[Rfam]
Annotation:
This 108-nucleotide RNA from Veillonella sp. oral taxon 780 belongs to the Rfam family "TPP riboswitch aptamer (THI element)". Gene Ontology term of the family: thiamine pyrophosphate binding.
RNA sequence: UACAUCUGUAAGGGGUGCUCACUAAAGUGGGCUGAGAAGUGGCUAUGUGCUACUAACCCAUAACCUGAUUUGGAUAAUGCCAACGUAGGGAUAUAUUAGUAUAUUUUU
Numbered sequence: 001u002a003c004a005u006c007u008g009u010a011a012g013g014g015g016u017g018c019u020c021a022c023u024a025a026a027g028u029g030g031g032c033u034g035a036g037a038a039g040u041g042g043c044u045a046u047g048u049g050c051u052a053c054u055a056a057c058c059c060a061u062a063a064c065c066u067g068a069u070u071u072g073g074a075u076a077a078u079g080c081c082a083a084c085g086u087a088g089g090g091a092u093a094u095a096u097u098a099g100u101a102u103a104u105u106u107u108u
Stems, first nucleotide, its partner, number of pairs: 007095004012059003017032005039053005064089004070083004